[Rfam]
RNA: TPP riboswitch aptamer (THI element)
RNA sequence: AUGCGUUUCCGGGGGAGCCCCACGGGGGGCUGAGAGGAAGGGUGGCCUUCGACCCCAAGUACCUGAUCCGGGUAAUGCCGGCGUAGGGAGGGAAGCGGCGGGCGCG
Numbered sequence: 001a002u003g004c005g006u007u008u009c010c011g012g013g014g015g016a017g018c019c020c021c022a023c024g025g026g027g028g029g030c031u032g033a034g035a036g037g038a039a040g041g042g043u044g045g046c047c048u049u050c051g052a053c054c055c056c057a058a059g060u061a062c063c064u065g066a067u068c069c070g071g072g073u074a075a076u077g078c079c080g081g082c083g084u085a086g087g088g089a090g091g092g093a094a095g096c097g098g099c100g101g102g103c104g105c106g
Stems, first nucleotide, its partner, number of pairs: 006094005011056004017030005037050005062087004068081004